[Rfam]
RNA sequence: CGUCAUCCUCAGGGCGGGGUGCAAUUCCCCACCGGCGGUAUCCCGGACAUUCCGGGGAGCCCGCGAGCGCCCCUGGCCGAACCGGCCGGGGGGUCAGCAGAUCCGGUGCAAGGCCGGAGCCGACGGUGACAGUCCGGAUGGAAGAGGAGACGA
Numbered sequence: 001c002g003u004c005a006u007c008c009u010c011a012g013g014g015c016g017g018g019g020u021g022c023a024a025u026u027c028c029c030c031a032c033c034g035g036c037g038g039u040a041u042c043c044c045g046g047a048c049a050u051u052c053c054g055g056g057g058a059g060c061c062c063g064c065g066a067g068c069g070c071c072c073c074u075g076g077c078c079g080a081a082c083c084g085g086c087c088g089g090g091g092g093g094u095c096a097g098c099a100g101a102u103c104c105g106g107u108g109c110a111a112g113g114c115c116g117g118a119g120c121c122g123a124c125g126g127u128g129a130c131a132g133u134c135c136g137g138a139u140g141g142a143a144g145a146g147g148a149g150a151c152g153a
Base pairs, nucleotide, nucleotide: 006148007147008146009145010144017029018028019027031133032132033122034121035064036063037062038061059120060119067098068097102118103117104116105115106114124136125135126134

A member of the RNA family "FMN riboswitch aptamer (RFN element)" from Desulfolutivibrio sulfodismutans, 153 nucleotides long. Pairs were carried over by alignment from the consensus structure, which is taken from published work. The RFN element is a highly conserved domain that is found frequently in the 5'-untranslated regions of prokaryotic mRNAs that encode for flavin mononucleotide (FMN) biosynthesis and transport proteins. This element is a metabolite-dependent riboswitch that directly binds FMN in the absence of proteins. Taxonomically the source falls in Desulfolutivibrio (Bacteria, Thermodesulfobacteriota, Desulfovibrionales, Desulfovibrionaceae).